RNA: Small nucleolar RNA Z105
Organism: Daucus carota
RNA sequence: UGGGCAUAAUGAUGAUAAAAAAGACAAUGUCUUCUGAUAAAUUUAUGAUUGAAGAUUAACCUCCUACUCAUUCUGA
Number, nucleotide and partner (000 for none) at each position: 001u000002g000003g000004g000005c000006a071007u070008a000009a068010u000011g000012a000013u000014g000015a000016u000017a000018a000019a000020a000021a000022a000023g000024a000025c000026a000027a000028u000029g000030u052031c051032u000033u000034c047035u000036g000037a000038u000039a000040a000041a000042u000043u000044u000045a000046u000047g034048a000049u000050u000051g031052a030053a000054g000055a000056u000057u000058a000059a000060c000061c000062u000063c000064c000065u000066a000067c000068u009069c000070a007071u006072u000073c000074u000075g000076a000